mir-460 microRNA precursor family: a 78-nucleotide RNA from Albula glossodonta. Pairs were carried over by alignment from the consensus structure, which was predicted with RNAalifold. Rfam links the family to the GO terms miRNA-mediated post-transcriptional gene silencing and RISC complex. Rfam 15.1 lists 1,029 matches to the family in 498 species. Taxonomically the source falls in Albula (Eukaryota, Deuterostomia, Craniata, Neopterygii).
RNA sequence: UUUCCCAGCCUCCUCAUUGUGCAUGCUGUGUGUCUGCAGUGUUAUCCGCACAGCGCCUGCAAUGUGGAGGCCGAGUGG
Numbered sequence: 001u002u003u004c005c006c007a008g009c010c011u012c013c014u015c016a017u018u019g020u021g022c023a024u025g026c027u028g029u030g031u032g033u034c035u036g037c038a039g040u041g042u043u044a045u046c047c048g049c050a051c052a053g054c055g056c057c058u059g060c061a062a063u064g065u066g067g068a069g070g071c072c073g074a075g076u077g078g
Stems, first nucleotide, its partner, number of pairs: 012067002015064007024055001026053006